This 117-nucleotide RNA from Pseudoflavonifractor sp. AF19-9AC belongs to the Rfam family "THF (Tetrahydrofolate) riboswitch aptamer". The source organism's lineage runs through Bacteria, Bacillota, Clostridia, Eubacteriales and Pseudoflavonifractor. Tetrahydrofolate (THF) riboswitch was first reported for Ames et al. as an RNA motif in 5' untranslated (5'-UTR)regions of folate transport and biosynthesis genes in Firmicutes genomes. On this family, see Ames et al., Chem Biol 2010: "A eubacterial riboswitch class that senses the coenzyme tetrahydrofolate". The family's consensus secondary structure is taken from published work.
RNA sequence: AGCAGAGUAGGACCUUGUGCGUAUCAUACCCAUUGGUAUCCAGUGCCCGCCGAACGGGGAGUUGACGGUGGGACGAAUAGCUUUGAGCUAGCGAUACAAGGCUCGCAUCCCAUUGCU
Numbered sequence: 001a002g003c004a005g006a007g008u009a010g011g012a013c014c015u016u017g018u019g020c021g022u023a024u025c026a027u028a029c030c031c032a033u034u035g036g037u038a039u040c041c042a043g044u045g046c047c048c049g050c051c052g053a054a055c056g057g058g059g060a061g062u063u064g065a066c067g068g069u070g071g072g073a074c075g076a077a078u079a080g081c082u083u084u085g086a087g088c089u090a091g092c093g094a095u096a097c098a099a100g101g102c103u104c105g106c107a108u109c110c111c112a113u114u115g116c117u
Base pairs, nucleotide, nucleotide: 001117002116003115004114005113010104011103013101014100015099016098017097018096019095020093021092022091043074044073046072047071048070049069050068051067052066057110058109059108061106078090079089080088081087